[Rfam]
The record is a 371-nucleotide sequence from Notoacmeibacter marinus, which matches "Alphaproteobacteria transfer-messenger RNA" in Rfam. The organism belongs to Notoacmeibacter, within Bacteria. It scores 307 bits against the family's covariance model. Rfam links the family to the GO term RNA catabolic process. The literature on the family includes a 1996 paper in RNA by Williams and Bartel, "Phylogenetic analysis of tmRNA secondary structure".
RNA sequence: GCUCUUCCAUAAAGACUGUUCCGCCACUAUAUUGGCCUUGCCGGUUUUCGGAUCGGCUAUGGCGAUAAACGAGCGAUGUAAUAAACCUAUCGGACCCGGGGGCAGUACCCGGCGCCUCCACCACGAACCGCCCGGCGGCGAAUAUGUCAGGGCGGCUGGUGUUGGGGGCGAAACAGGAUCGACGAGGGUGUAAAGAUCGACUUUUUGCCCGGCAUGAUACCACCGUCAUCGGGUCGAACCUAUAGUUGCAAACGACAACUAUGCUGAGGCACGUCUCGCUGCGUAAGCAGUGCGAUAGUCUCGAAUUGAAGUCCUGAGGGUUAGCACUUUCAGGCGGGGCCCGGAGGCGCCUGGCAACAGAAGCCUCCACU
Number, nucleotide and partner (000 for none) at each position: 001g000002c000003u000004c000005u000006u000007c000008c000009a000010u000011a000012a000013a000014g000015a000016c000017u000018g000019u000020u000021c000022c000023g000024c000025c000026a000027c000028u000029a000030u000031a000032u000033u000034g000035g000036c000037c000038u000039u000040g057041c056042c055043g054044g053045u052046u051047u000048u000049c000050g000051g046052a045053u044054c043055g042056g041057c040058u000059a000060u000061g209062g208063c207064g206065a205066u000067a000068a000069a000070c000071g202072a000073g000074c199075g198076a197077u196078g000079u000080a000081a000082u000083a000084a000085a000086c188087c187088u186089a000090u185091c184092g183093g000094a000095c000096c112097c111098g110099g109100g108101g000102g000103c000104a000105g000106u000107a000108c100109c099110c098111g097112g096113c170114g169115c168116c167117u166118c165119c164120a000121c000122c000123a000124c000125g000126a000127a000128c000129c000130g000131c000132c000133c000134g000135g000136c000137g000138g000139c000140g000141a000142a000143u000144a000145u000146g000147u000148c000149a000150g000151g000152g000153c000154g000155g000156c000157u000158g000159g000160u000161g000162u000163u000164g119165g118166g117167g116168g115169c114170g113171a000172a000173a000174c000175a000176g000177g000178a000179u000180c000181g000182a000183c092184g091185a090186g088187g087188g086189u000190g000191u000192a000193a000194a000195g000196a077197u076198c075199g074200a000201c000202u071203u000204u000205u065206u064207g063208c062209c061210c225211g224212g223213c000214a000215u236216g235217a234218u000219a000220c232221c231222a000223c212224c211225g210226u000227c000228a000229u000230c000231g221232g220233g000234u217235c216236g215237a000238a000239c000240c000241u000242a000243u000244a000245g000246u000247u000248g000249c000250a000251a000252a000253c000254g000255a000256c000257a000258a000259c000260u000261a000262u000263g000264c000265u000266g000267a000268g000269g000270c000271a000272c000273g000274u000275c000276u000277c000278g000279c000280u000281g000282c000283g000284u000285a000286a000287g000288c000289a000290g000291u000292g000293c000294g000295a000296u000297a000298g000299u000300c000301u000302c000303g000304a000305a000306u000307u000308g000309a000310a000311g000312u000313c000314c000315u000316g000317a000318g000319g000320g000321u000322u000323a000324g000325c000326a000327c000328u000329u000330u000331c000332a000333g000334g000335c000336g000337g352338g351339g350340c349341c000342c000343g368344g367345a366346g365347g364348c363349g340350c339351c338352u337353g000354g000355c000356a000357a000358c000359a000360g000361a000362a000363g348364c347365c346366u345367c344368c343369a000370c000371u000